[Rfam]
RNA sequence: AAAAGGAGCAAUAGCACCUUCUUGCUAAAACAAGAAAGGGAUUAUUGCUCCGUUUUU
Number, nucleotide and partner (000 for none) at each position: 001a000002a054003a053004a000005g051006g050007a049008g048009c047010a046011a045012u044013a043014g042015c000016a000017c000018c000019u036020u035021c034022u033023u032024g031025c000026u000027a000028a000029a000030a000031c024032a023033a022034g021035a020036a019037a000038g000039g000040g000041a000042u014043u013044a012045u011046u010047g009048c008049u007050c006051c005052g000053u003054u002055u000056u000057u000
The record is a 57-nucleotide RNA from Heptacodium miconioides, which matches "Plastid-psbA-3 3UTR RNA" in Rfam.
Its Rfam clan is "Plastid-psbA 3UTR RNA clan".
It is annotated as a cis-regulatory element.
The family's consensus secondary structure was predicted with LocARNA.